[Rfam]
A member of the RNA family "PyrR binding site" from Planococcus massiliensis, 123 nucleotides long. A reference for the family is Bonner et al. (2001), "Molecular recognition of pyr mRNA by the Bacillus subtilis attenuation regulatory protein PyrR", Nucleic Acids Res. Rfam links the family to the GO terms pyrimidine nucleobase biosynthetic process and pyrimidine nucleobase transport. Taxonomically the source falls in Planococcus (Bacteria, Bacillati, Bacillota, Caryophanaceae). The family has 41 seed sequences and 1,498 matches in Rfam 15.1.
RNA sequence: AACACCUUUAAUAACAGUCCAGAGAGGCUGAGAAGGUACAUACGCUAAGCCGGAAGACUGUCUUCCGUGCUGGAUUUUUCUGCGCAUCUAUCCUCUUGCCUUUCGGGCAAGAGGUUUUUUAUU
Numbered sequence: 001a002a003c004a005c006c007u008u009u010a011a012u013a014a015c016a017g018u019c020c021a022g023a024g025a026g027g028c029u030g031a032g033a034a035g036g037u038a039c040a041u042a043c044g045c046u047a048a049g050c051c052g053g054a055a056g057a058c059u060g061u062c063u064u065c066c067g068u069g070c071u072g073g074a075u076u077u078u079u080c081u082g083c084g085c086a087u088c089u090a091u092c093c094u095c096u097u098g099c100c101u102u103u104c105g106g107g108c109a110a111g112a113g114g115u116u117u118u119u120u121a122u123u
Stems, first nucleotide, its partner, number of pairs: 004037006015030005045073003051067007090116001092114010